[Rfam]
RNA sequence: AGAGGCCCUCUGCAGCCAGGGUGGAAUGUUUGCCUCAUUACCACGGCGACGAAGCAAGCAUUCUGCCAGGCUGCUCACGCUGCCCGC
Numbered sequence: 001a002g003a004g005g006c007c008c009u010c011u012g013c014a015g016c017c018a019g020g021g022u023g024g025a026a027u028g029u030u031u032g033c034c035u036c037a038u039u040a041c042c043a044c045g046g047c048g049a050c051g052a053a054g055c056a057a058g059c060a061u062u063c064u065g066c067c068a069g070g071c072u073g074c075u076c077a078c079g080c081u082g083c084c085c086g087c
Base pairs, nucleotide, nucleotide: 004084005083006082012074013073014072015071016070017069020067021066022065023064024063025062026061027060028059029058030057031056032055033054038049039048041046